[Rfam]
RNA sequence: CCAGCGGUAAUAGGAGAGUUCUAUCCUUCUAACCCUAAUGCACAGACCCCUCGCUGCUCUUCAUGCUCGUUGUUUUUCUCGCUGACUUUCAGCGGGCGAAAGAGCAAUGGAAGCUCAGGACUAAAAAACGUCAGCCGUAGGCUUUCCUAUAGCCGCAGGCCUGCCUGUCAGUGUGCGCGGCCUCUGCUCGCAAUGUCCGCAGCGCCUUCCUAUGAGGCCGCAGUCUGCCAAUACCCCGGGCAGCCGCGAAGAGCUCGUCUCUGUCAGCCUUUGGCGCUGCGGCGGAGUGGGGGAGGCCGCUGAUGGCAGCUGAGAAUAAAGCGAGCCCAGCUGCCCCGCUCUGUUCCACUGCCCCUGAGCUGUGGGGUUGGUGAAUUGCAGCAUGGCUCCGACAACU
Numbered sequence: 001c002c003a004g005c006g007g008u009a010a011u012a013g014g015a016g017a018g019u020u021c022u023a024u025c026c027u028u029c030u031a032a033c034c035c036u037a038a039u040g041c042a043c044a045g046a047c048c049c050c051u052c053g054c055u056g057c058u059c060u061u062c063a064u065g066c067u068c069g070u071u072g073u074u075u076u077u078c079u080c081g082c083u084g085a086c087u088u089u090c091a092g093c094g095g096g097c098g099a100a101a102g103a104g105c106a107a108u109g110g111a112a113g114c115u116c117a118g119g120a121c122u123a124a125a126a127a128a129c130g131u132c133a134g135c136c137g138u139a140g141g142c143u144u145u146c147c148u149a150u151a152g153c154c155g156c157a158g159g160c161c162u163g164c165c166u167g168u169c170a171g172u173g174u175g176c177g178c179g180g181c182c183u184c185u186g187c188u189c190g191c192a193a194u195g196u197c198c199g200c201a202g203c204g205c206c207u208u209c210c211u212a213u214g215a216g217g218c219c220g221c222a223g224u225c226u227g228c229c230a231a232u233a234c235c236c237c238g239g240g241c242a243g244c245c246g247c248g249a250a251g252a253g254c255u256c257g258u259c260u261c262u263g264u265c266a267g268c269c270u271u272u273g274g275c276g277c278u279g280c281g282g283c284g285g286a287g288u289g290g291g292g293g294a295g296g297c298c299g300c301u302g303a304u305g306g307c308a309g310c311u312g313a314g315a316a317u318a319a320a321g322c323g324a325g326c327c328c329a330g331c332u333g334c335c336c337c338g339c340u341c342u343g344u345u346c347c348a349c350u351g352c353c354c355c356u357g358a359g360c361u362g363u364g365g366g367g368u369u370g371g372u373g374a375a376u377u378g379c380a381g382c383a384u385g386g387c388u389c390c391g392a393c394a395a396c397u
Base pairs, nucleotide, nucleotide: 007153008152010150011149012148013147014146015145016144017143018142020141021140022139023138056105057104058103059102060101064098065097066096067095068094069093070092071091072090081135082134083133084132085131086130087128088127089126161309162308163307164306165305177300178299179298180297181296182295183294184293197282198281199280200279201278202277203276204275205274206273219248220247221246223244225243226242227241228240250262251261252260253259323389324388325387326386330382331381332380333379347373348372349371350370351369352367353366354365355364